[Rfam]
RNA sequence: UGCCGAGGAAAUCCUCGAUAGUUAACUGCAACCGAUUUUCUAAAACUUCGGCAGUUAACUACCAAAGGGCAU
Dot-bracket structure: ...........((.(.(.(((((((((((.....................))))))))))).).).))....